A member of the RNA family "Ribosomal S15 leader" from Halomonas sp. GFAJ-1, 125 nucleotides long. A search with the family's covariance model found it, with a score of 44 bits. About the family: The E. coli Ribosomal S15 gene 5' UTR can form two alternative structures. One that is a series of three hairpins, The other includes a pseudoknot. This structure causes translational regulation of the S15 protein. The alignment of this family contains only the final two hairpins which are conserved in other species, and also includes the complete region that forms the alternate structures. On this family, see Benard et al., Biochimie 1996: "Pseudoknot and translational control in the expression of the S15 ribosomal protein".

RNA sequence: GCCUGAGACUGCAAAUAUGCGUGGUCUCACCCAUUCAAUUUUAGGCAUAUUGCUUACUGGAGAGACAGAUGGCAUUAACCGCUGAGAAAAAGGCCGAGAUCGUCAACGAAUACGGCCGCGGCGAU
Numbered sequence: 001g002c003c004u005g006a007g008a009c010u011g012c013a014a015a016u017a018u019g020c021g022u023g024g025u026c027u028c029a030c031c032c033a034u035u036c037a038a039u040u041u042u043a044g045g046c047a048u049a050u051u052g053c054u055u056a057c058u059g060g061a062g063a064g065a066c067a068g069a070u071g072g073c074a075u076u077a078a079c080c081g082c083u084g085a086g087a088a089a090a091a092g093g094c095c096g097a098g099a100u101c102g103u104c105a106a107c108g109a110a111u112a113c114g115g116c117c118g119c120g121g122c123g124a125u
Stems, first nucleotide, its partner, number of pairs: 007026006050078002059076002062073001
Dot-bracket structure: ......((((((........)))))).......................((.......((.(..........).))))...............................................